[Rfam]
RNA sequence: ACUGGUGGACCAAGACUGACUGAUGAAGCAAGACUUUGCUGAUACACUCCUUCCAGACAAAGGGGUGGAGACAGCAGCCCUCAUCGGAGAAACCACAGGGCUGACUAUACUAUUAAAAAUUU
Dot-bracket structure: .((((.(((....(.(.((((.........))..)).).).......))).)).)).......(((......(((((((((....((.....))..))))))).)).....)))........

Small Cajal body specific RNA 4: a 122-nucleotide sequence from Peromyscus maniculatus. For this family Rfam cites "Cajal body-specific small nuclear RNAs: a novel class of 2'-O-methylation and pseudouridylation guide RNAs" (Darzacq et al., EMBO J, 2002). Rfam's curators write: scaRNAs are a specific class of small nuclear RNAs which localise to the Cajal bodies and guide the modification of RNA polymerase II transcribed spliceosomal RNAs U1, U2, U4, U5 and U12. ACA26 belongs to the H/ACA box class of guide RNAs as it has the predicted hairpin-hinge-hairpin-tail structure, conserved H/ACA-box motifs and is found associated with GAR1. Lineage of the source: Eukaryota > Eumetazoa > Chordata > Craniata > Peromyscus maniculatus.